[Rfam]
t44 RNA: a 98-nucleotide RNA sequence from Shewanella algae. Pairs were carried over by alignment from the consensus structure, which was predicted with LocARNA. Rfam's curators write: This family consists of a number of bacterial RNA genes of between 135 and 170 bases in length. The t44 gene has been identified in several species of enteric bacteria but homologs have also been identified in Pseudomonas and Coxiella species. The t44 gene is found between the map and rpsB genes in all species in the full alignment apart from Shigella flexneri. The function of this RNA is unknown. On this family, see Tjaden et al., Nucleic Acids Res 2002: "Transcriptome analysis of Escherichia coli using high-density oligonucleotide probe arrays".

RNA sequence: UUAACUCAAAUACUAAAUCACACACGUAUCGACACAUUCUUCGGGGUGCCCGCGGCUUGGCCAAAGGGUCGAAGACAUGGGAUGCGUGGAGGUCUAAC
Numbered sequence: 001u002u003a004a005c006u007c008a009a010a011u012a013c014u015a016a017a018u019c020a021c022a023c024a025c026g027u028a029u030c031g032a033c034a035c036a037u038u039c040u041u042c043g044g045g046g047u048g049c050c051c052g053c054g055g056c057u058u059g060g061c062c063a064a065a066g067g068g069u070c071g072a073a074g075a076c077a078u079g080g081g082a083u084g085c086g087u088g089g090a091g092g093u094c095u096a097a098c
Stems, first nucleotide, its partner, number of pairs: 023088008035079003040073004048069004